[Rfam]
RNA: BsrG
RNA sequence: UGUACAAUAAGGCUUUUUAGGGUGGUGGCUCGCCCCUUGUUGAAAGGGGGUGAUGCCUAUGACGGUGUUUGAAGCCAUGAUGAUCAUGCUAACAUUUGGAUCAUUUGUGGUGUUACUACUGUCACAAAAAAAGUAACCACCCUCAUGCCUGGUAAGCGUUAGGGUCGUUACUAUCCUUAAUGCGAGCCGCCCCUAUAAGGGCUGUUGUACGUGACCGUUGGUGUGCCAGCACCAGCG
Numbered sequence: 001u002g003u004a005c006a007a008u009a010a011g012g013c014u015u016u017u018u019a020g021g022g023u024g025g026u027g028g029c030u031c032g033c034c035c036c037u038u039g040u041u042g043a044a045a046g047g048g049g050g051u052g053a054u055g056c057c058u059a060u061g062a063c064g065g066u067g068u069u070u071g072a073a074g075c076c077a078u079g080a081u082g083a084u085c086a087u088g089c090u091a092a093c094a095u096u097u098g099g100a101u102c103a104u105u106u107g108u109g110g111u112g113u114u115a116c117u118a119c120u121g122u123c124a125c126a127a128a129a130a131a132a133g134u135a136a137c138c139a140c141c142c143u144c145a146u147g148c149c150u151g152g153u154a155a156g157c158g159u160u161a162g163g164g165u166c167g168u169u170a171c172u173a174u175c176c177u178u179a180a181u182g183c184g185a186g187c188c189g190c191c192c193c194u195a196u197a198a199g200g201g202c203u204g205u206u207g208u209a210c211g212u213g214a215c216c217g218u219u220g221g222u223g224u225g226c227c228a229g230c231a232c233c234a235g236c237g
Stems, first nucleotide, its partner, number of pairs: 001211003005207003009203001011188005017145001019143004024137001026135001030053003034049005061123007074089002099114003189202004216237009